[Rfam]
RNA sequence: GUUCUCCUAAUUUGUAAGUUGCUUUGGAUAAAAGUGUCUGCUAAAUGACUAAAU
Numbered sequence: 001g002u003u004c005u006c007c008u009a010a011u012u013u014g015u016a017a018g019u020u021g022c023u024u025u026g027g028a029u030a031a032a033a034g035u036g037u038c039u040g041c042u043a044a045a046u047g048a049c050u051a052a053a054u
Stems, first nucleotide, its partner, number of pairs: 013043001014041003020036006
Dot-bracket structure: ............((((...((((((.....))))))..))).)...........